[Rfam]
RNA: Small nucleolar RNA snoR104
Organism: Solanum commersonii
RNA sequence: AGGGAUCACAUAGAAGUUGAGAUGUAUCCUGAUUCAGACUUCCUAGAAAGAGUUUCUGGGGUUUCCUGCUUGUGGUUCGUGAGAUAGUGCUGCAAGUCUCAAAUAACCAGAUACAUCA
Numbered sequence: 001a002g003g004g005a006u007c008a009c010a011u012a013g014a015a016g017u018u019g020a021g022a023u024g025u026a027u028c029c030u031g032a033u034u035c036a037g038a039c040u041u042c043c044u045a046g047a048a049a050g051a052g053u054u055u056c057u058g059g060g061g062u063u064u065c066c067u068g069c070u071u072g073u074g075g076u077u078c079g080u081g082a083g084a085u086a087g088u089g090c091u092g093c094a095a096g097u098c099u100c101a102a103a104u105a106a107c108c109a110g111a112u113a114c115a116u117c118a
Base pairs, nucleotide, nucleotide: 001030002029003028007024008023011020055111056110057109068097069096070095071094072093073092074091075090078087